[Rfam]
RNA sequence: GCCUUAAAUCGGCCAAGCAAAUGGUGCGCAGCGGGGGACCCAGAUCGUUUUGGGGCUAAUCCAAUUGUGGACGGGGAUCUUCGCCCCGAGCCCGACAGCUAACCUCGUAGGCGAACGAAGCACCUUCU
Dot-bracket structure: (((.....(..................)..((((((....((........))(((.....(((....)))..((((.......))))...))).........)))))).)))................